A member of the RNA family "L31-Gammaproteobacteria ribosomal protein leader" from Volucribacter psittacicida, 52 nucleotides long. The family's RNA type in Rfam is cis-regulatory leader. Pairs were carried over by alignment from the consensus structure, which is taken from published work. Clan: Ribosomal Protein L31 Leader clan.

RNA sequence: CAUACGGUAUUGGCUGAAAAACGCCAAUGGCGGUAUGGCUUCAGAUUGAGGU
Numbered sequence: 001c002a003u004a005c006g007g008u009a010u011u012g013g014c015u016g017a018a019a020a021a022c023g024c025c026a027a028u029g030g031c032g033g034u035a036u037g038g039c040u041u042c043a044g045a046u047u048g049a050g051g052u
Base pairs, nucleotide, nucleotide: 001037002036003035004034005033007031008030011026012025013024014023015021